Shown here is a 248-nucleotide part of an RNA from Legionella rubrilucens, a member of the family "Bacterial large subunit ribosomal RNA". Pairs were carried over by alignment from the consensus structure, which is taken from published work. A search with the family's covariance model found it, with a score of 2844 bits.
RNA sequence: GGAAAAUUGAGAGGAGCUGCUCCUAGUACGAGAGGACCGGAGUGGACGAACCUCUGGUGUACCGGUUGUCACGCCAGUGGCAUUGCCGGGUAGCUAAGUUCGGACGGGAUAACCGCUGAAAGCAUCUAAGCGGGAAGCCUCCCUCAAGAUGAGUUUUCCCAUGAAGCCCGUUGAAGACUACGACGUUGAUAGGCGAGGUGUGGAAGCGCAGUAAUGCGUGAAGCUAACUCGUACUAAUUGGCUGAUUG
Numbered sequence: 001g002g003a004a005a006a007u008u009g010a011g012a013g014g015a016g017c018u019g020c021u022c023c024u025a026g027u028a029c030g031a032g033a034g035g036a037c038c039g040g041a042g043u044g045g046a047c048g049a050a051c052c053u054c055u056g057g058u059g060u061a062c063c064g065g066u067u068g069u070c071a072c073g074c075c076a077g078u079g080g081c082a083u084u085g086c087c088g089g090g091u092a093g094c095u096a097a098g099u100u101c102g103g104a105c106g107g108g109a110u111a112a113c114c115g116c117u118g119a120a121a122g123c124a125u126c127u128a129a130g131c132g133g134g135a136a137g138c139c140u141c142c143c144u145c146a147a148g149a150u151g152a153g154u155u156u157u158c159c160c161a162u163g164a165a166g167c168c169c170g171u172u173g174a175a176g177a178c179u180a181c182g183a184c185g186u187u188g189a190u191a192g193g194c195g196a197g198g199u200g201u202g203g204a205a206g207c208g209c210a211g212u213a214a215u216g217c218g219u220g221a222a223g224c225u226a227a228c229u230c231g232u233a234c235u236a237a238u239u240g241g242c243u244g245a246u247u248g
Stems, first nucleotide, its partner, number of pairs: 001159008011145004017045007047102005055096003062089005067082006106140003113133005162245001165243004169185005190236003193232005200224001206219005